[Rfam]
RNA sequence: ACAGACGGCAGCAGUGCUGGAGUAACGCAUGAGAGUCAGCAGAUGGCGUAGUACCCUCCUUUCGGAGGCGAAGGCC
Numbered sequence: 001a002c003a004g005a006c007g008g009c010a011g012c013a014g015u016g017c018u019g020g021a022g023u024a025a026c027g028c029a030u031g032a033g034a035g036u037c038a039g040c041a042g043a044u045g046g047c048g049u050a051g052u053a054c055c056c057u058c059c060u061u062u063c064g065g066a067g068g069c070g071a072a073g074g075c076c
Stems, first nucleotide, its partner, number of pairs: 001023001006019005035044003045076003055068005